Rfam assigns this 282-nucleotide RNA from Anisodus acutangulus to the family "Plant signal recognition particle RNA". The base pairs follow the family's consensus structure, which is taken from published work. For this family Rfam cites "Towards the structure of the mammalian signal recognition particle" (Wild et al., Curr Opin Struct Biol, 2002).

[Rfam]
RNA sequence: GUCUUAAACUUGGGGGCAUUAGUGUGGUGGAAUGUUGGGUUGCGUUAUCUGGCAGGGCUUUGUGUGUUGGUUUCUGGCCUGCCCUGUCCAAGUGUAGAGUUGAGUCACGCGGCCCUAGUGGAAGCAUGGGCUGCUUUGCUCCUAGAGUGGGCCGGACCACGUGAGGCUGGAUUCACAGAGCAACGAACAGGUCCCGCUCUGUGUAGUGGAAGGAUAACGGGCUAGUUUCACCCAAGUCCAACAAAAUGCCUGAUGGGCUCCACCAAUUAAACCACCAUAUUU
Numbered sequence: 001g002u003c004u005u006a007a008a009c010u011u012g013g014g015g016g017c018a019u020u021a022g023u024g025u026g027g028u029g030g031a032a033u034g035u036u037g038g039g040u041u042g043c044g045u046u047a048u049c050u051g052g053c054a055g056g057g058c059u060u061u062g063u064g065u066g067u068u069g070g071u072u073u074c075u076g077g078c079c080u081g082c083c084c085u086g087u088c089c090a091a092g093u094g095u096a097g098a099g100u101u102g103a104g105u106c107a108c109g110c111g112g113c114c115c116u117a118g119u120g121g122a123a124g125c126a127u128g129g130g131c132u133g134c135u136u137u138g139c140u141c142c143u144a145g146a147g148u149g150g151g152c153c154g155g156a157c158c159a160c161g162u163g164a165g166g167c168u169g170g171a172u173u174c175a176c177a178g179a180g181c182a183a184c185g186a187a188c189a190g191g192u193c194c195c196g197c198u199c200u201g202u203g204u205a206g207u208g209g210a211a212g213g214a215u216a217a218c219g220g221g222c223u224a225g226u227u228u229c230a231c232c233c234a235a236g237u238c239c240a241a242c243a244a245a246a247u248g249c250c251u252g253a254u255g256g257g258c259u260c261c262a263c264c265a266a267u268u269a270a271a272c273c274a275c276c277a278u279a280u281u282u
Stems, first nucleotide, its partner, number of pairs: 009014001021281010033269002035266003039261001042258002045256005051250004055239006062232001064231003069226001074225008083213002087210004092204009102141004107136001109134007118125002142147001149194005160185003167178003